[Rfam]
RNA: aspS RNA
Organism: Collinsella stercoris
RNA sequence: GCCGAGCCGUGCUGUCUACGCGCCCCGGCAGUCUGUACACCAGCCGCCCGCUACGGCACGGGGCGGCACAGAUCAUCAAGGAGGA
Numbered sequence: 001g002c003c004g005a006g007c008c009g010u011g012c013u014g015u016c017u018a019c020g021c022g023c024c025c026c027g028g029c030a031g032u033c034u035g036u037a038c039a040c041c042a043g044c045c046g047c048c049c050g051c052u053a054c055g056g057c058a059c060g061g062g063g064c065g066g067c068a069c070a071g072a073u074c075a076u077c078a079a080g081g082a083g084g085a
Base pairs, nucleotide, nucleotide: 001029002028003027004026006024008022009021010020011019031073032072033071034070035069036068043067044066045065046064047063048062049061